[Rfam]
This 331-nucleotide sequence from Macaca fascicularis belongs to the Rfam family "7SK RNA". On this family, see Wassarman and Steitz, Mol Cell Biol 1991: "Structural analyses of the 7SK ribonucleoprotein (RNP), the most abundant human small RNP of unknown function". The source organism's lineage runs through Eukaryota, Tetrapoda, Boreoeutheria, Euarchontoglires and Macaca. Rfam classes the family as a non-coding RNA gene.

RNA sequence: GGAUGUGAGGGUGAUCUGGCUGCGGCGCCUGUCACCCCAUUGAGUGCCAGGGUUGAUGUGGCUGAUCUGGCGGACUAGGCACGUGUCCCCUUCCUCCCUCGCUGCCCCAUAUGCAUUCCUCCCGAAGCUGUACGUUUGGUUUAAGAGGACAACCAUCCCAGAUAGAGGAGGACUGGUCCCCGGUUGAGGGUAUAUGAGUAGCUGCAGUCUCCUGCUAGAACUUUCAAACAAGCUCUCAAGGUCCACUUGUAGGAGAACGUAGGGUAGUCAAGCUUCCAAGACUUCAGACACAUCCAAAUGAGGUGCUGCAUGUGGCAGUCUGCCUUUCUUA
Numbered sequence: 001g002g003a004u005g006u007g008a009g010g011g012u013g014a015u016c017u018g019g020c021u022g023c024g025g026c027g028c029c030u031g032u033c034a035c036c037c038c039a040u041u042g043a044g045u046g047c048c049a050g051g052g053u054u055g056a057u058g059u060g061g062c063u064g065a066u067c068u069g070g071c072g073g074a075c076u077a078g079g080c081a082c083g084u085g086u087c088c089c090c091u092u093c094c095u096c097c098c099u100c101g102c103u104g105c106c107c108c109a110u111a112u113g114c115a116u117u118c119c120u121c122c123c124g125a126a127g128c129u130g131u132a133c134g135u136u137u138g139g140u141u142u143a144a145g146a147g148g149a150c151a152a153c154c155a156u157c158c159c160a161g162a163u164a165g166a167g168g169a170g171g172a173c174u175g176g177u178c179c180c181c182g183g184u185u186g187a188g189g190g191u192a193u194a195u196g197a198g199u200a201g202c203u204g205c206a207g208u209c210u211c212c213u214g215c216u217a218g219a220a221c222u223u224u225c226a227a228a229c230a231a232g233c234u235c236u237c238a239a240g241g242u243c244c245a246c247u248u249g250u251a252g253g254a255g256a257a258c259g260u261a262g263g264g265u266a267g268u269c270a271a272g273c274u275u276c277c278a279a280g281a282c283u284u285c286a287g288a289c290a291c292a293u294c295c296a297a298a299u300g301a302g303g304u305g306c307u308g309c310a311u312g313u314g315g316c317a318g319u320c321u322g323c324c325u326u327u328c329u330u331a
Stems, first nucleotide, its partner, number of pairs: 001108002005102007013093002018090002024087005030081004036073001037070003042067002045064001046062003116171002118168004122139004127135002140162003147158003201273003208266001210264006222255004228250005297330002300326005305319005